[Rfam]
The record is a 346-nucleotide RNA sequence from Amedibacterium intestinale, which matches "Bacterial RNase P class B" in Rfam. Rfam links the family to the GO terms dimeric ribonuclease P complex, ribonuclease P activity and tRNA processing. Lineage of the source: Bacteria > Bacillati > Bacillota > Erysipelotrichaceae > Amedibacterium. By type it is a ribozyme. Ribonuclease P (RNase P) is a ubiquitous endoribonuclease, found in archaea, bacteria and eukarya as well as chloroplasts and mitochondria. Its best characterised activity is the generation of mature 5'-ends of tRNAs by cleaving the 5'-leader elements of precursor-tRNAs. It scores 289 bits against the family's covariance model.
RNA sequence: UUGCUGCGGCAGUCGCUGGCAAAUAUUGCUAGAGGAAAGUCCAUGCUCGCACAUUCUGUGAUGAAUGUAGUGUUUGUGCUGGAUGAAAUGAUAAAUCCAGGCAGUGCAAACUGACGGCUGAUGGAAAUCUAAGGUGAAAACUAUGAUGGAAAUCUUUAAAAGUGCCACAGAGACGAGCUUUAUGAGAAAUCAUAAAGGUGGAACGGGUAAACCCCGCAAGCGAGAAACCCAAAUUUGGUAGGGGAAUCUGUCUGAGGUGAAACGAAACCAUCAGAUGGAACAUAGAUUAUCUAUGUAGAUAAAUGGCUGCCACUUCUAUUUGAAGUACAGAACAUGGCUUAUGCAG
Numbered sequence: 001u002u003g004c005u006g007c008g009g010c011a012g013u014c015g016c017u018g019g020c021a022a023a024u025a026u027u028g029c030u031a032g033a034g035g036a037a038a039g040u041c042c043a044u045g046c047u048c049g050c051a052c053a054u055u056c057u058g059u060g061a062u063g064a065a066u067g068u069a070g071u072g073u074u075u076g077u078g079c080u081g082g083a084u085g086a087a088a089u090g091a092u093a094a095a096u097c098c099a100g101g102c103a104g105u106g107c108a109a110a111c112u113g114a115c116g117g118c119u120g121a122u123g124g125a126a127a128u129c130u131a132a133g134g135u136g137a138a139a140a141c142u143a144u145g146a147u148g149g150a151a152a153u154c155u156u157u158a159a160a161a162g163u164g165c166c167a168c169a170g171a172g173a174c175g176a177g178c179u180u181u182a183u184g185a186g187a188a189a190u191c192a193u194a195a196a197g198g199u200g201g202a203a204c205g206g207g208u209a210a211a212c213c214c215c216g217c218a219a220g221c222g223a224g225a226a227a228c229c230c231a232a233a234u235u236u237g238g239u240a241g242g243g244g245a246a247u248c249u250g251u252c253u254g255a256g257g258u259g260a261a262a263c264g265a266a267a268c269c270a271u272c273a274g275a276u277g278g279a280a281c282a283u284a285g286a287u288u289a290u291c292u293a294u295g296u297a298g299a300u301a302a303a304u305g306g307c308u309g310c311c312a313c314u315u316c317u318a319u320u321u322g323a324a325g326u327a328c329a330g331a332a333c334a335u336g337g338c339u340u341a342u343g344c345a346g
Stems, first nucleotide, its partner, number of pairs: 004346003008311007016032006037340003041337005046224005051068006074219005079100006101115001102113004116214002120154003127147003133142003162212002164208003178197008228243003247279007280296006313325004